[Rfam]
RNA sequence: GCGGUACCGGUUCACGUCCCGUGCAGCUAGCGCAGCACGGUGGCGACCCGGCGACC
Number, nucleotide and partner (000 for none) at each position: 001g000002c000003g056004g055005u054006a000007c051008c050009g049010g048011u000012u000013c000014a000015c045016g044017u043018c042019c040020c039021g038022u037023g036024c035025a000026g000027c000028u000029a000030g000031c000032g000033c000034a000035g024036c023037a022038c021039g020040g019041u000042g018043g017044c016045g015046a000047c000048c010049c009050g008051g007052c000053g000054a005055c004056c003